[Rfam]
RNA: Nuclear RNase P
Organism: Babesia ovis
RNA sequence: ACGGGCGUUAGCUCGGCACUCUCUGUGAACAUACGUGUUGUCAUACAUUCAGGGGGGAAGGUCUGAGGAACCAGCGGGGGCUGAAAAGCCAACCGUAGCACAUACGGAAAACGCCCAACAGAAAACAGCUACGCAUGAAAGUGGCGUUAUGGUCAAGGCUACGCCUAAAGUCAAAUUGCCGAGGCUCAUGUAACUCAAUUCAGACUACUCAAUGUCCGU
Numbered sequence: 001a002c003g004g005g006c007g008u009u010a011g012c013u014c015g016g017c018a019c020u021c022u023c024u025g026u027g028a029a030c031a032u033a034c035g036u037g038u039u040g041u042c043a044u045a046c047a048u049u050c051a052g053g054g055g056g057g058a059a060g061g062u063c064u065g066a067g068g069a070a071c072c073a074g075c076g077g078g079g080g081c082u083g084a085a086a087a088g089c090c091a092a093c094c095g096u097a098g099c100a101c102a103u104a105c106g107g108a109a110a111a112c113g114c115c116c117a118a119c120a121g122a123a124a125a126c127a128g129c130u131a132c133g134c135a136u137g138a139a140a141g142u143g144g145c146g147u148u149a150u151g152g153u154c155a156a157g158g159c160u161a162c163g164c165c166u167a168a169a170g171u172c173a174a175a176u177u178g179c180c181g182a183g184g185c186u187c188a189u190g191u192a193a194c195u196c197a198a199u200u201c202a203g204a205c206u207a208c209u210c211a212a213u214g215u216c217c218g219u
Stems, first nucleotide, its partner, number of pairs: 001219004007213003012183007021054005036047003063203005070153003079090004093107005110148006128134002184191002